Background:
The record is a 101-nucleotide sequence from Latilactobacillus sakei, which matches "23S methyl RNA motif" in Rfam. Taxonomically the source falls in Latilactobacillus sakei subsp. sakei (Bacteria, Bacilli, Lactobacillales, Latilactobacillus sakei). The base pairs follow the family's consensus structure, which is taken from published work.
RNA sequence: UUUUCCCUAACUUUUAUCAGAAUACUUUUUGAUAAAAGCUAGUGAUGAAAUGACACUAACGUAGUUUCUCGCCGUGAAUAACCGAGGGACUACGUUUUUUU
Numbered sequence: 001u002u003u004u005c006c007c008u009a010a011c012u013u014u015u016a017u018c019a020g021a022a023u024a025c026u027u028u029u030u031g032a033u034a035a036a037a038g039c040u041a042g043u044g045a046u047g048a049a050a051u052g053a054c055a056c057u058a059a060c061g062u063a064g065u066u067u068c069u070c071g072c073c074g075u076g077a078a079u080a081a082c083c084g085a086g087g088g089a090c091u092a093c094g095u096u097u098u099u100u101u
Stems, first nucleotide, its partner, number of pairs: 002047001004045002007042003011038009058096014076082001

Rfam links the family to the GO term regulation of gene expression.